[Rfam]
RNA sequence: AGAUGUCAAGGUCAUAAUCCUUAUCACCGCGAUGCGCUCGCGCAAGCGCGGCUGUAAGGAUUCAUGAUCCGCCCAGUAUUCGCAUAAAAGUGAAGCGAAUGCUUCACGAUAUGCGAAUACUGGGCAGGAUUGUGAGAGUGCGCAGCACGGAGCAAUCCAUAUGACAUCU
Numbered sequence: 001a002g003a004u005g006u007c008a009a010g011g012u013c014a015u016a017a018u019c020c021u022u023a024u025c026a027c028c029g030c031g032a033u034g035c036g037c038u039c040g041c042g043c044a045a046g047c048g049c050g051g052c053u054g055u056a057a058g059g060a061u062u063c064a065u066g067a068u069c070c071g072c073c074c075a076g077u078a079u080u081c082g083c084a085u086a087a088a089a090g091u092g093a094a095g096c097g098a099a100u101g102c103u104u105c106a107c108g109a110u111a112u113g114c115g116a117a118u119a120c121u122g123g124g125c126a127g128g129a130u131u132g133u134g135a136g137a138g139u140g141c142g143c144a145g146c147a148c149g150g151a152g153c154a155a156u157c158c159a160u161a162u163g164a165c166a167u168c169u
Stems, first nucleotide, its partner, number of pairs: 001169007010069004016062009027051005033044004072124008082114004090107007127158007138148004
RNA: Clostridiales-1 RNA
Organism: Eubacterium sp. CAG:38